Rfam assigns this 60-nucleotide sequence from Saccharothrix sp. ALI-22-I to the family "Actino-pnp RNA". The match comes from Rfam's covariance-model search (62 bits). The family's RNA type in Rfam is cis-regulatory element.

RNA sequence: GCCGGUCCUCGGUAGUGGCCCCCUGGUAGGAAACCCAGGGGACUUCGAUCGAAGACCGGC
Numbered sequence: 001g002c003c004g005g006u007c008c009u010c011g012g013u014a015g016u017g018g019c020c021c022c023c024u025g026g027u028a029g030g031a032a033a034c035c036c037a038g039g040g041g042a043c044u045u046c047g048a049u050c051g052a053a054g055a056c057c058g059g060c
Stems, first nucleotide, its partner, number of pairs: 001060007009052005017044002020041007